[Rfam]
RNA: BsrC
RNA sequence: UUCAAUCAAAACAAUGAAAGCCCUACCUCUCUUUCAUCCUUGCGGCUCCGAAGACCGCGCCAGUGGGAAUUGCUGAGCCUGACGGCCG
Numbered sequence: 001u002u003c004a005a006u007c008a009a010a011a012c013a014a015u016g017a018a019a020g021c022c023c024u025a026c027c028u029c030u031c032u033u034u035c036a037u038c039c040u041u042g043c044g045g046c047u048c049c050g051a052a053g054a055c056c057g058c059g060c061c062a063g064u065g066g067g068a069a070u071u072g073c074u075g076a077g078c079c080u081g082a083c084g085g086c087c088g
Stems, first nucleotide, its partner, number of pairs: 034068002039063002041059005047053001